[Rfam]
RNA sequence: AGGGCGGCCGGAUCGGUGGCGCGGGUGACCAGGAGGUAGUCGCGGAUCGCCAUGCCGUGCCGGCCCUC
Numbered sequence: 001a002g003g004g005c006g007g008c009c010g011g012a013u014c015g016g017u018g019g020c021g022c023g024g025g026u027g028a029c030c031a032g033g034a035g036g037u038a039g040u041c042g043c044g045g046a047u048c049g050c051c052a053u054g055c056c057g058u059g060c061c062g063g064c065c066c067u068c
Base pairs, nucleotide, nucleotide: 005062006061008059011030013028016026017025035056036055037054038053040052042050043049044048
Rfam assigns this 68-nucleotide sequence from Streptomyces sp. NWU49 to the family "ASdes TB sRNA". The literature on the family includes a 2009 paper in Mol Microbiol by Arnvig and Young, "Identification of small RNAs in Mycobacterium tuberculosis". Lineage of the source: Bacteria > Actinomycetota > Actinomycetes > Kitasatosporales > Streptomyces. A search with the family's covariance model found it, with a score of 59 bits.